RNA sequence: UCGAAGUUUCAUCUACAAAUGAUAAGAUUUUUGUCUUAGUUAUCGAAUCGUUGAAACAAAUAGCAAUAACCCCAUGUCUUGGCUUUAGCAAGACAGUGGUAAUUGCUACUUU
Numbered sequence: 001u002c003g004a005a006g007u008u009u010c011a012u013c014u015a016c017a018a019a020u021g022a023u024a025a026g027a028u029u030u031u032u033g034u035c036u037u038a039g040u041u042a043u044c045g046a047a048u049c050g051u052u053g054a055a056a057c058a059a060a061u062a063g064c065a066a067u068a069a070c071c072c073c074a075u076g077u078c079u080u081g082g083c084u085u086u087a088g089c090a091a092g093a094c095a096g097u098g099g100u101a102a103u104u105g106c107u108a109c110u111u112u
Stems, first nucleotide, its partner, number of pairs: 008022001010021003058112003061108007069100001071098001073096001076094005
Shown here is a 112-nucleotide sequence from Musa balbisiana, a member of the family "Plastid-psbA-1 3UTR RNA". Plastid psbA-1 is a non-coding RNA (ncRNA) present in plastids. It was identified in inverted repeat sequences in the 3 prime untranslate region (3UTR) of photosystem II quinone-binding protein (psbA). The family is grouped with related families in Rfam's "Plastid-psbA 3UTR RNA clan". The family's consensus secondary structure was predicted with LocARNA. For this family Rfam cites "Retrograde signaling in plants: A critical review focusing on the GUN pathway and beyond" (Richter et al., Plant Commun, 2023). NCBI's taxonomy places the organism under Eukaryota, Spermatophyta, Zingiberales, Musaceae, Musa.